[Rfam]
RNA sequence: AAUAGAAUAACAUUUGUACCGCAGACAGCAGGUGCUUAACCGCUUAAUUUCCUGCCGAGGUCAUACGAUAGAAUUACUGAUUCACUAUUGUAUACAAACCUCCCUGCCUGUAAAGACAUGGAGGUUUUUUUAUUGACCG
Numbered sequence: 001a002a003u004a005g006a007a008u009a010a011c012a013u014u015u016g017u018a019c020c021g022c023a024g025a026c027a028g029c030a031g032g033u034g035c036u037u038a039a040c041c042g043c044u045u046a047a048u049u050u051c052c053u054g055c056c057g058a059g060g061u062c063a064u065a066c067g068a069u070a071g072a073a074u075u076a077c078u079g080a081u082u083c084a085c086u087a088u089u090g091u092a093u094a095c096a097a098a099c100c101u102c103c104c105u106g107c108c109u110g111u112a113a114a115g116a117c118a119u120g121g122a123g124g125u126u127u128u129u130u131u132a133u134u135g136a137c138c139g
Stems, first nucleotide, its partner, number of pairs: 028055005034043002099124005105118002108115001
Dot-bracket structure: ...........................(((((.((......)).......)))))...........................................(((((.((.(......).)).)))))...............
The family of this 139-nucleotide RNA from Mesobacillus persicus is "Ribosomal protein L10 leader". Rfam classes the family as a cis-regulatory leader. On this family, see Zengel and Lindahl, Prog Nucleic Acid Res Mol Biol 1994: "Diverse mechanisms for regulating ribosomal protein synthesis in Escherichia coli". Rfam's curators write: This family is a putative r-protein leader autoregulatory structure found in B. subtilis and other low-GC Gram-positive bacteria. It is located in the 5' untranslated regions of mRNAs encoding ribosomal proteins L10 and L12 (rplJ-rplL). The organism belongs to Mesobacillus, within Bacteria.